[Rfam]
Rfam assigns this 120-nucleotide RNA sequence from Novipirellula galeiformis to the family "Group II catalytic intron D1-D4-3". From the family's description: Group II introns are found in rRNA, tRNA and mRNA of organelles in fungi, plants and protists, and also in mRNA in bacteria. The base pairs follow the family's consensus structure. The literature on the family includes a 2001 paper in Trends Genet by Bonen and Vogel, "The ins and outs of group II introns".
RNA sequence: ACCCGCCAGGUUACGUACAGAAACCACAUAGAGGCCGAUGACUCGCGGUGAGUGGGCAUGUGACCACGAAACCGAACCGGAAGAGUGAGCAUAGGUAGAUGUGGCACUUGGGCGGGGACA
Numbered sequence: 001a002c003c004c005g006c007c008a009g010g011u012u013a014c015g016u017a018c019a020g021a022a023a024c025c026a027c028a029u030a031g032a033g034g035c036c037g038a039u040g041a042c043u044c045g046c047g048g049u050g051a052g053u054g055g056g057c058a059u060g061u062g063a064c065c066a067c068g069a070a071a072c073c074g075a076a077c078c079g080g081a082a083g084a085g086u087g088a089g090c091a092u093a094g095g096u097a098g099a100u101g102u103g104g105c106a107c108u109u110g111g112g113c114g115g116g117g118a119c120a
Stems, first nucleotide, its partner, number of pairs: 002116006008109004024104006034096003038092003042089004046074004052067004